This 102-nucleotide RNA sequence from Alkaliphilus metalliredigens belongs to the Rfam family "Purine riboswitch aptamer". Lineage of the source: Bacteria > Bacillati > Peptostreptococcales > Natronincolaceae > Alkaliphilus metalliredigens. The base pairs follow the family's consensus structure, which is taken from published work.
RNA sequence: CUCAGUCGAAAAUUGAAGACUCAUAUAAUGUCGAUAAUAGGGUUCGACAGUUUCUACAGGAUCACCGAAAAUGAUUCUACUAUGAGUGAAAGUGUACCUAGG
Numbered sequence: 001c002u003c004a005g006u007c008g009a010a011a012a013u014u015g016a017a018g019a020c021u022c023a024u025a026u027a028a029u030g031u032c033g034a035u036a037a038u039a040g041g042g043u044u045c046g047a048c049a050g051u052u053u054c055u056a057c058a059g060g061a062u063c064a065c066c067g068a069a070a071a072u073g074a075u076u077c078u079a080c081u082a083u084g085a086g087u088g089a090a091a092g093u094g095u096a097c098c099u100a101g102g
Stems, first nucleotide, its partner, number of pairs: 019087007029049006058078007